The record is a 77-nucleotide RNA from Papaver somniferum, which matches "Small nucleolar RNA Z105" in Rfam.
RNA sequence: GCAUAGUGAUGAUGAAAGUAUAUUAAUCCGACUAAAUUAUAUGAAUGGAUAAAUAAAUAACCUCCUACUCAUUCUGA
Numbered sequence: 001g002c003a004u005a006g007u008g009a010u011g012a013u014g015a016a017a018g019u020a021u022a023u024u025a026a027u028c029c030g031a032c033u034a035a036a037u038u039a040u041a042u043g044a045a046u047g048g049a050u051a052a053a054u055a056a057a058u059a060a061c062c063u064c065c066u067a068c069u070c071a072u073u074c075u076g077a
Stems, first nucleotide, its partner, number of pairs: 006072004033052001
Dot-bracket structure: .....((((.......................(..................)................)))).....
Pairs were carried over by alignment from the consensus structure, which was predicted with CMfinder.
Lineage of the source: Eukaryota > Tracheophyta > Magnoliopsida > Ranunculales > Papaver.
Its family is annotated with RNA processing and nucleolus in the Gene Ontology.
Rfam 15.1 lists 621 matches to the family in 204 species.
A search with the family's covariance model found it, with a score of 48 bits.